[Rfam]
RNA sequence: AGUGUUUACUCUCCACUUAAAUCGAAGAGU
Numbered sequence: 001a002g003u004g005u006u007u008a009c010u011c012u013c014c015a016c017u018u019a020a021a022u023c024g025a026a027g028a029g030u
Stems, first nucleotide, its partner, number of pairs: 001017004008030005013024001
The family of this 30-nucleotide RNA from Tobamovirus brugmansiae is "Pseudoknot of upstream pseudoknot domain (UPD) of the 3'UTR". Its family is annotated with regulation of viral transcription in the Gene Ontology. NCBI's taxonomy places the organism under Viruses, Orthornavirae, Kitrinoviricota, Alsuviricetes, Tobamovirus brugmansiae.